[Rfam]
RNA sequence: GGCAAAUGCACUCUGUGUCACAUUGAACUUAACUACAUGUGAAGACAAUUUGUUAGUUUGCAAUAUUAAAGAGUUGCGUAUUAUCCAUGUAUUUAAAGCCGUAUCAGGGUGAUUACAUUGAAAUCGCAUUUUAC
Numbered sequence: 001g002g003c004a005a006a007u008g009c010a011c012u013c014u015g016u017g018u019c020a021c022a023u024u025g026a027a028c029u030u031a032a033c034u035a036c037a038u039g040u041g042a043a044g045a046c047a048a049u050u051u052g053u054u055a056g057u058u059u060g061c062a063a064u065a066u067u068a069a070a071g072a073g074u075u076g077c078g079u080a081u082u083a084u085c086c087a088u089g090u091a092u093u094u095a096a097a098g099c100c101g102u103a104u105c106a107g108g109g110u111g112a113u114u115a116c117a118u119u120g121a122a123a124u125c126g127c128a129u130u131u132u133a134c
Stems, first nucleotide, its partner, number of pairs: 002061006010053002014047003018042006025036001067133003072130003076127003084121002087118005093112002
About this RNA: A member of the RNA family "Small nucleolar RNA psi18S-841/snoR66" from Drosophila sechellia, 134 nucleotides long. Gene Ontology terms of the family: RNA processing and nucleolus. Rfam's curators put it in the seed alignment. Rfam classes the family as an H/ACA-box small nucleolar RNA. Taxonomically the source falls in Sophophora (Eukaryota, Drosophilidae, Drosophilini, Drosophila). From the family's description: psi18S-841 is a member of the H/ACA class of snoRNA. This family is responsible for guiding the modification of uridine 841 in Drosophila 18S rRNA to pseudouridine. The base pairs follow the family's consensus structure, which was predicted with RNAfold.